[Rfam]
L31-Corynebacteriaceae ribosomal protein leader: a 61-nucleotide RNA sequence from Corynebacterium tuscaniense. The source organism's lineage runs through Bacteria, Actinomycetes, Corynebacteriaceae, Corynebacterium and Corynebacterium tuscaniense. By type it is a cis-regulatory leader. It is one of the family's seed sequences.

Nucleotides: 061
Stems, first nucleotide, its partner, number of pairs: 001046003004042004013033005019027001
Number, partner (000 for none) and nucleotide at each position: 001046a002045c003044u004042c005041a006040g007039g008000c009000a010000c011000g012000a013033u014032c015031c016030g017029g018000u019027g020000a021000a022000a023000g024000c025000a026000u027019u028000c029017c030016c031015g032014g033013a034000a035000c036000c037000g038000a039007c040006c041005u042004g043000a044003a045002g046001u047000a048000u049000c050000a051000a052000u053000c054000c055000u056000g057000a058000g059000g060000g061000a